The record is a 374-nucleotide part of an RNA from Ignisphaera aggregans, which matches "Archaeal large subunit ribosomal RNA" in Rfam. Clan: LSU clan. The source organism's lineage runs through Archaea, Thermoproteati, Thermoproteota, Thermoprotei and Ignisphaera aggregans. It is one of the family's seed sequences.
RNA sequence: GGGGGCUAACCCGGGCUAGGGAACUCGGCAAAUUGGCCCCGUAACUUCGGGAGAAGGGGUGCCUGCGGAUCCUAGGUAAACCCUGGGAUCCGCAGGUCGCAGUGACUAGGGGGUCCUGACUGUUUAAUAAAAACAUAGGUCCCCGCUAGCCCGAAAGGGUGAGUACGGGGGCCGAAUCCUGGCCACUGGCGGUCCGUGAAACCGGGGUACAACCCGGCGAAGCGCCGCUGAAGGCCGGGGGUAACUCUGACCCUCUUAAGGUAGCCAAAUGCCUUGCCGGGUAAGUUCCGGCGCGCAUGAAGGGAUCAACGAGGGCCCCACUGUCCCAGCCCGGGACCCCGUGAAGCCCACGGAGCCGGUGCACAGGCCGGCAU
Numbered sequence: 001g002g003g004g005g006c007u008a009a010c011c012c013g014g015g016c017u018a019g020g021g022a023a024c025u026c027g028g029c030a031a032a033u034u035g036g037c038c039c040c041g042u043a044a045c046u047u048c049g050g051g052a053g054a055a056g057g058g059g060u061g062c063c064u065g066c067g068g069a070u071c072c073u074a075g076g077u078a079a080a081c082c083c084u085g086g087g088a089u090c091c092g093c094a095g096g097u098c099g100c101a102g103u104g105a106c107u108a109g110g111g112g113g114u115c116c117u118g119a120c121u122g123u124u125u126a127a128u129a130a131a132a133a134c135a136u137a138g139g140u141c142c143c144c145g146c147u148a149g150c151c152c153g154a155a156a157g158g159g160u161g162a163g164u165a166c167g168g169g170g171g172c173c174g175a176a177u178c179c180u181g182g183c184c185a186c187u188g189g190c191g192g193u194c195c196g197u198g199a200a201a202c203c204g205g206g207g208u209a210c211a212a213c214c215c216g217g218c219g220a221a222g223c224g225c226c227g228c229u230g231a232a233g234g235c236c237g238g239g240g241g242u243a244a245c246u247c248u249g250a251c252c253c254u255c256u257u258a259a260g261g262u263a264g265c266c267a268a269a270u271g272c273c274u275u276g277c278c279g280g281g282u283a284a285g286u287u288c289c290g291g292c293g294c295g296c297a298u299g300a301a302g303g304g305a306u307c308a309a310c311g312a313g314g315g316c317c318c319c320a321c322u323g324u325c326c327c328a329g330c331c332c333g334g335g336a337c338c339c340c341g342u343g344a345a346g347c348c349c350a351c352g353g354a355g356c357c358g359g360u361g362c363a364c365a366g367g368c369c370g371g372c373a374u
Stems, first nucleotide, its partner, number of pairs: 001340004010335008019326003036060005045050001061097016098102001110319007117311002121135003138173008146163001149160004176306004181236003186233002188229005195224003202217005237255006256260001276292006355372005